[Rfam]
RNA sequence: UGCUGCAACAUCCCCGCGGAUGGGCUGGCGCGAAGCGAUCUUCCGCUUCGCUUCCAGAUGUGAAUCCGCUGCAGCU
Numbered sequence: 001u002g003c004u005g006c007a008a009c010a011u012c013c014c015c016g017c018g019g020a021u022g023g024g025c026u027g028g029c030g031c032g033a034a035g036c037g038a039u040c041u042u043c044c045g046c047u048u049c050g051c052u053u054c055c056a057g058a059u060g061u062g063a064a065u066c067c068g069c070u071g072c073a074g075c076u
Stems, first nucleotide, its partner, number of pairs: 002075006013062001014060001016069006022061001025057004030051008
RNA: nadA riboswitch